[Rfam]
RNA sequence: GCUUGGAUGGCUCAGUUGGUUAGAGCGCAGGUCUCAUAGCAAUAUGACCGCAACUAGCGGGUAAUCCUGAGGUCAUGAGUUCGACCCUCAUUCCGAGCA
Number, nucleotide and partner (000 for none) at each position: 001g098002c097003u096004u095005g094006g093007a092008u000009g000010g026011c025012u024013c023014a000015g000016u000017u000018g000019g000020u000021u000022a000023g013024a012025g011026c010027g000028c069029a068030g067031g066032u000033c000034u000035c000036a000037u000038a000039g000040c000041a000042a000043u000044a000045u000046g000047a000048c000049c000050g000051c000052a000053a000054c000055u000056a000057g000058c000059g000060g000061g000062u000063a000064a000065u000066c031067c030068u029069g028070a000071g000072g000073u000074c000075a091076u090077g089078a088079g087080u000081u000082c000083g000084a000085c000086c000087c079088u078089c077090a076091u075092u007093c006094c005095g004096a003097g002098c001099a000

The family of this 99-nucleotide RNA sequence from Hermanssonia centrifuga is "tRNA". Rfam 15.1 lists 5,335,975 matches to the family in 14,413 species. The base pairs follow the family's consensus structure, which is taken from published work. About the family: Transfer RNA (tRNA) molecules are approximately 80 nucleotides in length. The source organism's lineage runs through Eukaryota, Opisthokonta, Basidiomycota, Agaricomycotina and Hermanssonia. Gene Ontology term of the family: triplet codon-amino acid adaptor activity. Rfam classes the family as a transfer RNA.